[Rfam]
RNA sequence: GCUCAGGCUGUGAUUUCAAGCCAGGGGGCGUUUUUCUGUAACUGGAUGAAAAGCACCUCCAGGGCUUGAAGCUCACAGUUUGAGA
Numbered sequence: 001g002c003u004c005a006g007g008c009u010g011u012g013a014u015u016u017c018a019a020g021c022c023a024g025g026g027g028g029c030g031u032u033u034u035u036c037u038g039u040a041a042c043u044g045g046a047u048g049a050a051a052a053g054c055a056c057c058u059c060c061a062g063g064g065c066u067u068g069a070a071g072c073u074c075a076c077a078g079u080u081u082g083a084g085a
Stems, first nucleotide, its partner, number of pairs: 002084012014071009024060005030054007
Background: The record is an 85-nucleotide RNA sequence from Pongo pygmaeus, which matches "mir-498 microRNA precursor family" in Rfam. The literature on the family includes a 2005 paper in Nat Genet by Bentwich et al., "Identification of hundreds of conserved and nonconserved human microRNAs". The family has 5 seed sequences and 21 matches in Rfam 15.1.